[Rfam]
The record is a 138-nucleotide RNA sequence from Rhodoplanes serenus, which matches "Alphaproteobacterial sRNA BjrC1505" in Rfam. NCBI's taxonomy places the organism under Bacteria, Pseudomonadati, Alphaproteobacteria, Hyphomicrobiales, Rhodoplanes. It is annotated as a small RNA. Pairs were carried over by alignment from the consensus structure.
Nucleotides: 138
Stems, first nucleotide, its partner, number of pairs: 001043004005014002020035002024031001047061004065083006089102004111131008
Number, partner (000 for none) and nucleotide at each position: 001043c002042g003041c004040g005014c006013c007000g008000g009000u010000a011000a012000g013006g014005g015000c016000u017000c018000g019000u020035u021034a022000a023000g024031c025000u026000u027000u028000c029000c030000c031024g032000a033000a034021u035020a036000u037000u038000a039000c040004u041003g042002u043001g044000u045000a046000c047061g048060u049059c050058c051000a052000c053000c054000u055000c056000g057000u058050g059049g060048a061047c062000a063000u064000c065083g066082a067081g068080u069079g070078g071000c072000u073000c074000c075000u076000g077000u078070c079069c080068a081067c082066u083065c084000u085000g086000u087000u088000u089102g090101a091100c092099g093000c094000c095000u096000c097000c098000c099092u100091g101090u102089u103000g104000a105000c106000a107000c108000u109000u110000c111131g112130g113129g114128c115127c116126g117125c118124c119000u120000u121000c122000g123000u124118g125117g126116c127115g128114g129113c130112c131111c132000c133000u134000u135000u136000u137000u138000u